Overview:
Shown here is a 48-nucleotide sequence from Orthohepacivirus hominis, a member of the family "Hepatitis C virus stem-loop SL1412 RNA". The base pairs follow the family's consensus structure, which was predicted with RNAfold. It is annotated as a cis-regulatory element. Taxonomically the source falls in Orthohepacivirus (Viruses, Riboviria, Kitrinoviricota, Amarillovirales). The sequence is in the family's curated seed alignment. From the family's description: HCV_SL1412 is a stem-loop in the coding region of the C (core) gene.

RNA sequence: GCGGGGUUGGCUUAUUACUCUAUGGUGGGGAACUGGGCCAAAGUGAUU
Numbered sequence: 001g002c003g004g005g006g007u008u009g010g011c012u013u014a015u016u017a018c019u020c021u022a023u024g025g026u027g028g029g030g031a032a033c034u035g036g037g038c039c040a041a042a043g044u045g046a047u048u
Stems, first nucleotide, its partner, number of pairs: 007042002010038005019030003